[Rfam]
RNA sequence: AACUCGAUAGUAUGGUAAAAAAAUUCAUAUUUUUUUAUACCAUACUAUCUAUAUCUAUUAUUGGACUGUAUAAAGAUACAAGC
Numbered sequence: 001a002a003c004u005c006g007a008u009a010g011u012a013u014g015g016u017a018a019a020a021a022a023a024u025u026c027a028u029a030u031u032u033u034u035u036u037a038u039a040c041c042a043u044a045c046u047a048u049c050u051a052u053a054u055c056u057a058u059u060a061u062u063g064g065a066c067u068g069u070a071u072a073a074a075g076a077u078a079c080a081a082g083c
Base pairs, nucleotide, nucleotide: 006049007048008047009046010045011044012043013042014041015040016039017038019036020035021034022033023032